Annotation: Rfam assigns this 152-nucleotide RNA sequence from Actinomadura rudentiformis to the family "c-di-AMP riboswitch aptamer (ydaO/yuaA leader)".
RNA sequence: CGGUGGCCCAGGCCGAGUCCGCAUCCUCCCUCCACCGGAUGCGGAGCCGGGGACCCAUUUCCAGGGGUGAAUCGGCGCUCCUUCGUGUGCGCCGUAGGGCUCUUCCAUGCCCGAAUCCGUCAGCUAACCCGGUAGGCGUCAUGGGAGUAAGG
Numbered sequence: 001c002g003g004u005g006g007c008c009c010a011g012g013c014c015g016a017g018u019c020c021g022c023a024u025c026c027u028c029c030c031u032c033c034a035c036c037g038g039a040u041g042c043g044g045a046g047c048c049g050g051g052g053a054c055c056c057a058u059u060u061c062c063a064g065g066g067g068u069g070a071a072u073c074g075g076c077g078c079u080c081c082u083u084c085g086u087g088u089g090c091g092c093c094g095u096a097g098g099g100c101u102c103u104u105c106c107a108u109g110c111c112c113g114a115a116u117c118c119g120u121c122a123g124c125u126a127a128c129c130c131g132g133u134a135g136g137c138g139u140c141a142u143g144g145g146a147g148u149a150a151g152g
Stems, first nucleotide, its partner, number of pairs: 012137003018045009046133006056064001065118003073094006097112004
Description:
Its family is annotated with regulation of gene expression and cyclic-di-AMP binding in the Gene Ontology.